[Rfam]
RNA sequence: UUUCCCGUGAGGGCGUGUGGGAUGGAAGCCGGAGCCGAACCGCAGCACUGAACGCAAGUGAACCCUUAGGCAGGCUCCUCGGACCUGGGCAAGCGUGCUCGCCUACGCGACGCCCGAUAUCCGAUCGUGGCCGUGGAGUAUUGAGGGCAGCGGCGGCGGGACAUUGCUUCACC
Numbered sequence: 001u002u003u004c005c006c007g008u009g010a011g012g013g014c015g016u017g018u019g020g021g022a023u024g025g026a027a028g029c030c031g032g033a034g035c036c037g038a039a040c041c042g043c044a045g046c047a048c049u050g051a052a053c054g055c056a057a058g059u060g061a062a063c064c065c066u067u068a069g070g071c072a073g074g075c076u077c078c079u080c081g082g083a084c085c086u087g088g089g090c091a092a093g094c095g096u097g098c099u100c101g102c103c104u105a106c107g108c109g110a111c112g113c114c115c116g117a118u119a120u121c122c123g124a125u126c127g128u129g130g131c132c133g134u135g136g137a138g139u140a141u142u143g144a145g146g147g148c149a150g151c152g153g154c155g156g157c158g159g160g161a162c163a164u165u166g167c168u169u170c171a172c173c
Stems, first nucleotide, its partner, number of pairs: 002015001004013003031173002036166001040159004045154001046152001048150003063147006074139003078135001080133003084130001087115004093108004

Group II catalytic intron D1-D4-3: a 173-nucleotide RNA sequence from Adhaeretor mobilis. The base pairs follow the family's consensus structure. Rfam links the family to the GO term Group II intron splicing. Lineage of the source: Bacteria > Pseudomonadati > Planctomycetota > Pirellulales > Adhaeretor.